[Rfam]
RNA sequence: GGUAGUAGCAAUUACUCAAGUGAGAACCUUGAGGACUGAAGUGGAGAAGGGUUCCAUGUGAACAGCAGUUGAACAUGGGUCAGGCGGUCCUAAGCGAUCGGGUAACUCCGUACCUAGACGAGGGUGACAACUAUCACUUAACUAAAUUGUGACGUGUUAUAGCCCUCCGGAGCGAAAGGGAAUCGUGUUAAUAUUCACGACCCUUACCGUGGAGAUCGCCCCUUUCGGGGGGCAAGUGCGGUAACGCAAACGAACACAGAGACGUCGGCUGGAGCCCCGGGAAGAGUUCUCUUUUCUUUGUAAGGAGCGUACCCCCUGGAAUCGGCUUGUCCGGAGAUAGGGGCGUGGCUUCCGUAAAGCAGCGCGGGUCUUGCGCUGUCCGGUGCACUCUAGUCGGCCCUUGAAAAUCUGUGGGAGACAGUGUGAUUUUCACGGUAGGCCGUACCCAUAUCCGCAGCAGGUCUCCAAGGUGAACAGCCUCUAGUCC
Numbered sequence: 001g002g003u004a005g006u007a008g009c010a011a012u013u014a015c016u017c018a019a020g021u022g023a024g025a026a027c028c029u030u031g032a033g034g035a036c037u038g039a040a041g042u043g044g045a046g047a048a049g050g051g052u053u054c055c056a057u058g059u060g061a062a063c064a065g066c067a068g069u070u071g072a073a074c075a076u077g078g079g080u081c082a083g084g085c086g087g088u089c090c091u092a093a094g095c096g097a098u099c100g101g102g103u104a105a106c107u108c109c110g111u112a113c114c115u116a117g118a119c120g121a122g123g124g125u126g127a128c129a130a131c132u133a134u135c136a137c138u139u140a141a142c143u144a145a146a147u148u149g150u151g152a153c154g155u156g157u158u159a160u161a162g163c164c165c166u167c168c169g170g171a172g173c174g175a176a177a178g179g180g181a182a183u184c185g186u187g188u189u190a191a192u193a194u195u196c197a198c199g200a201c202c203c204u205u206a207c208c209g210u211g212g213a214g215a216u217c218g219c220c221c222c223u224u225u226c227g228g229g230g231g232g233c234a235a236g237u238g239c240g241g242u243a244a245c246g247c248a249a250a251c252g253a254a255c256a257c258a259g260a261g262a263c264g265u266c267g268g269c270u271g272g273a274g275c276c277c278c279g280g281g282a283a284g285a286g287u288u289c290u291c292u293u294u295u296c297u298u299u300g301u302a303a304g305g306a307g308c309g310u311a312c313c314c315c316c317u318g319g320a321a322u323c324g325g326c327u328u329g330u331c332c333g334g335a336g337a338u339a340g341g342g343g344c345g346u347g348g349c350u351u352c353c354g355u356a357a358a359g360c361a362g363c364g365c366g367g368g369u370c371u372u373g374c375g376c377u378g379u380c381c382g383g384u385g386c387a388c389u390c391u392a393g394u395c396g397g398c399c400c401u402u403g404a405a406a407a408u409c410u411g412u413g414g415g416a417g418a419c420a421g422u423g424u425g426a427u428u429u430u431c432a433c434g435g436u437a438g439g440c441c442g443u444a445c446c447c448a449u450a451u452c453c454g455c456a457g458c459a460g461g462u463c464u465c466c467a468a469g470g471u472g473a474a475c476a477g478c479c480u481c482u483a484g485u486c487c
Stems, first nucleotide, its partner, number of pairs: 015033006034486004043466004049446002054078006063071002085442003089179002094173002097111002100109003121166005183200005203438002226434002229431002231428002237248004255413006264398004269393006277383003281299005304353004313343006322334004360378007452461002468480004
The family of this 487-nucleotide part of an RNA from Macrostomum lignano is "Eukaryotic large subunit ribosomal RNA". The organism belongs to Macrostomum, within Eukaryota. A search with the family's covariance model found it, with a score of 3098 bits.